[Rfam]
RNA sequence: AUCUUUGCGCUUGGGGCAAUGACGUAGACAAUGAGAUUCUAACCGAGACGCGUCUAUUGCUGGUUGAAAACUAUUUCCAAAUCCCCUCUUGAGUCAUGGUUUGACUGUGGUUCUAGAGAAUUUCUGGAAGGAUUUCCACGAGAAAUU
Numbered sequence: 001a002u003c004u005u006u007g008c009g010c011u012u013g014g015g016g017c018a019a020u021g022a023c024g025u026a027g028a029c030a031a032u033g034a035g036a037u038u039c040u041a042a043c044c045g046a047g048a049c050g051c052g053u054c055u056a057u058u059g060c061u062g063g064u065u066g067a068a069a070a071c072u073a074u075u076u077c078c079a080a081a082u083c084c085c086c087u088c089u090u091g092a093g094u095c096a097u098g099g100u101u102u103g104a105c106u107g108u109g110g111u112u113c114u115a116g117a118g119a120a121u122u123u124c125u126g127g128a129a130g131g132a133u134u135u136c137c138a139c140g141a142g143a144a145a146u147u
Base pairs, nucleotide, nucleotide: 021054022053023052024051025050027049029047035044037042086118087117088116089115091113092112093111094110095109096108097107098106099105100104131147132146133145134144135143136142
A member of the RNA family "U4 spliceosomal RNA" from Cephalotus follicularis, 147 nucleotides long.
The family is grouped with related families in Rfam's "U4 clan".
Lineage of the source: Eukaryota > Streptophytina > Mesangiospermae > Oxalidales > Cephalotus.
It is annotated as a spliceosomal small nuclear RNA.